Shown here is a 52-nucleotide RNA from Labrys okinawensis, a member of the family "ffh sRNA". It is annotated as a small RNA. The literature on the family includes a 2009 paper in BMC Genomics by Meyer et al., "Identification of candidate structured RNAs in the marine organism 'Candidatus Pelagibacter ubique'". It scores 55 bits against the family's covariance model.
[Rfam]
RNA sequence: GAGGAUGGAGGCCAACGCCCGUCAGCGCGAUGCGCCCACGGGCGUGUUUUGC
Numbered sequence: 001g002a003g004g005a006u007g008g009a010g011g012c013c014a015a016c017g018c019c020c021g022u023c024a025g026c027g028c029g030a031u032g033c034g035c036c037c038a039c040g041g042g043c044g045u046g047u048u049u050u051g052c
Stems, first nucleotide, its partner, number of pairs: 016044007025035004